A member of the RNA family "eL15-Euryarchaeota ribosomal protein leader" from Haloarcula amylolytica, 54 nucleotides long. Lineage of the source: Archaea > Halobacteria > Halobacteriales > Haloarculaceae > Haloarcula amylolytica.
[Rfam]
RNA sequence: CCUGCGUGUGCAGGUCGGGAUGUGAGUCGCGUCGAGCGCGACUUGAACCACGCA
Numbered sequence: 001c002c003u004g005c006g007u008g009u010g011c012a013g014g015u016c017g018g019g020a021u022g023u024g025a026g027u028c029g030c031g032u033c034g035a036g037c038g039c040g041a042c043u044u045g046a047a048c049c050a051c052g053c054a
Stems, first nucleotide, its partner, number of pairs: 001014005017049002024044008
Dot-bracket structure: (((((....)))))..((.....((((((((.....))))))))...)).....